[Rfam]
RNA sequence: AGGUGUCGGUGAUGUCACCUUUACCUACAUUGUUUGACUGCUGCUGAGAAAAACCCAAAUCCUGAGACACCU
Numbered sequence: 001a002g003g004u005g006u007c008g009g010u011g012a013u014g015u016c017a018c019c020u021u022u023a024c025c026u027a028c029a030u031u032g033u034u035u036g037a038c039u040g041c042u043g044c045u046g047a048g049a050a051a052a053a054c055c056c057a058a059a060u061c062c063u064g065a066g067a068c069a070c071c072u
Stems, first nucleotide, its partner, number of pairs: 001072002004069004